This 123-nucleotide RNA from Gossypium lobatum belongs to the Rfam family "MIR7504 microRNA precursor family". It scores 111 bits against the family's covariance model.
RNA sequence: AAUAAUAUAAUGACAAAUCAGAUUUUUCCUCCUAAUUUUUAGUAUUUUCCUCGUGAAAAAAUUUAAAUCUAACUAAAAAUGCUAAAAAUCAGGAGAAAAAAGCUGAUUUGUCAUUCUCCUAUU
Numbered sequence: 001a002a003u004a005a006u007a008u009a010a011u012g013a014c015a016a017a018u019c020a021g022a023u024u025u026u027u028c029c030u031c032c033u034a035a036u037u038u039u040u041a042g043u044a045u046u047u048u049c050c051u052c053g054u055g056a057a058a059a060a061a062u063u064u065a066a067a068u069c070u071a072a073c074u075a076a077a078a079a080u081g082c083u084a085a086a087a088a089u090c091a092g093g094a095g096a097a098a099a100a101a102g103c104u105g106a107u108u109u110g111u112c113a114u115u116c117u118c119c120u121a122u123u
Base pairs, nucleotide, nucleotide: 001123002122003121004120007117009115010114011113012112013111014110015109016108017107018106019105020104021103023101024100025099026098027097029095030094031093032092033091035089036088037087038086039085041083042082045079046078047077048076
NCBI's taxonomy places the organism under Eukaryota, eudicotyledons, malvids, Malvaceae, Gossypium.